radC RNA: a 138-nucleotide RNA from Variovorax paradoxus. The organism belongs to Variovorax, within Bacteria. By type it is a cis-regulatory element. Rfam 15.1 lists 500 matches to the family in 142 species.
[Rfam]
RNA sequence: AAGCUGCCCGCAUGUUCGCUGAUGAUUCGUCAGCACAUGCCAGCAGCCAGGGUUCCAGGCUGCCGCGGGUCUCGCCCGCGUUGCCCACCAGUCCGCUCAGCAUCGUCCUGCGGACGAGCGUCAUCGUGACGCCGAUGC
Numbered sequence: 001a002a003g004c005u006g007c008c009c010g011c012a013u014g015u016u017c018g019c020u021g022a023u024g025a026u027u028c029g030u031c032a033g034c035a036c037a038u039g040c041c042a043g044c045a046g047c048c049a050g051g052g053u054u055c056c057a058g059g060c061u062g063c064c065g066c067g068g069g070u071c072u073c074g075c076c077c078g079c080g081u082u083g084c085c086c087a088c089c090a091g092u093c094c095g096c097u098c099a100g101c102a103u104c105g106u107c108c109u110g111c112g113g114a115c116g117a118g119c120g121u122c123a124u125c126g127u128g129a130c131g132c133c134g135a136u137g138c
Base pairs, nucleotide, nucleotide: 011039012038013037014036015035018034019033020032021031022030023029043063044062045061046060047059048058051084064080065079066078067077068076069075110138111137112136118132119131120130121129122128123127
Dot-bracket structure: ..........(((((..((((((.....)))))))))))...((((((..[......))))))((((((.....))))))...].........................(((.....((((((...))))))...)))